[Rfam]
RNA sequence: AGGCCAUGAAGAAAUCAAUCAUUUCUCGAUGCUGAUAUAUAACUAUAUCAAAGUUAUAUACUUUUUUGAUGACCUAUUUGUGCGUGUCUGAGCCUU
Dot-bracket structure: ((((.......................................................................................)))).
small nucleolar RNA snoR126: a 96-nucleotide RNA sequence from Solanum tuberosum. Gene Ontology terms of the family: nucleolus and RNA processing. A search with the family's covariance model found it, with a score of 66 bits. NCBI's taxonomy places the organism under Eukaryota, Embryophyta, Solanales, Solaneae, Solanum. The family's consensus secondary structure was predicted with RNAalifold. Rfam classes the family as a C/D-box small nucleolar RNA. The literature on the family includes a 2009 paper in Nucleic Acids Res by Chen and Wu, "Mining small RNA sequencing data: a new approach to identify small nucleolar RNAs in Arabidopsis".